[Rfam]
RNA sequence: UCACAAUAUCUGGGGGUCAUUGUAGAAGCGUGCUCGUCGCGACCCCAGCCAAACCUUUUCAGGGCUGCAAUUCUACA
Numbered sequence: 001u002c003a004c005a006a007u008a009u010c011u012g013g014g015g016g017u018c019a020u021u022g023u024a025g026a027a028g029c030g031u032g033c034u035c036g037u038c039g040c041g042a043c044c045c046c047a048g049c050c051a052a053a054c055c056u057u058u059u060c061a062g063g064g065c066u067g068c069a070a071u072u073c074u075a076c077a
Base pairs, nucleotide, nucleotide: 013046014045015044016043017042018041021077022076023075024074025073026072027071028040029039030038050067051066054063055062056061
RNA: Mammalian CPEB3 ribozyme
Organism: Parnassius apollo